[Rfam]
RNA sequence: GGAGGCCACAAACCAUUGAAGCUGUACGCAUGGUGUAGUGGACUAGCGGUUAGAGGAGACCCCUCCCUUAAG
Numbered sequence: 001g002g003a004g005g006c007c008a009c010a011a012a013c014c015a016u017u018g019a020a021g022c023u024g025u026a027c028g029c030a031u032g033g034u035g036u037a038g039u040g041g042a043c044u045a046g047c048g049g050u051u052a053g054a055g056g057a058g059a060c061c062c063c064u065c066c067c068u069u070a071a072g
Stems, first nucleotide, its partner, number of pairs: 001066005006041002012034005048061004
The family of this 72-nucleotide RNA from Orthoflavivirus denguei is "Flavivirus DB element".
Rfam links the family to the GO term translation.
A reference for the family is Akiyama et al. (2021), "Three-dimensional structure of a flavivirus dumbbell RNA reveals molecular details of an RNA regulator of replication", Nucleic Acids Res.
The organism belongs to Dengue virus, within Viruses.
Rfam's curators put it in the seed alignment.
This family represents the flavivirus 3' UTR elements DB1 and DB2. These DB elements are thought to be required for efficient translation.
It is annotated as a cis-regulatory element.